L31-Firmicutes ribosomal protein leader: a 33-nucleotide sequence from Calcarius ornatus. On this family, see Eckert and Weinberg, BMC Microbiol 2020: "Discovery of 20 novel ribosomal leader candidates in bacteria and archaea". The family's RNA type in Rfam is cis-regulatory leader. The base pairs follow the family's consensus structure, which is taken from published work. NCBI's taxonomy places the organism under Eukaryota, Opisthokonta, Theropoda, Fringillidae, Calcarius. Clan: Ribosomal Protein L31 Leader clan.
[Rfam]
RNA sequence: CUCUGUACAAUGGAAAAUUUCAGGGCAAAGGAG
Number, nucleotide and partner (000 for none) at each position: 001c025002u024003c023004u022005g021006u000007a000008c000009a019010a018011u017012g000013g000014a000015a000016a000017a011018u010019u009020u000021c005022a004023g003024g002025g001026c000027a000028a000029a000030g000031g000032a000033g000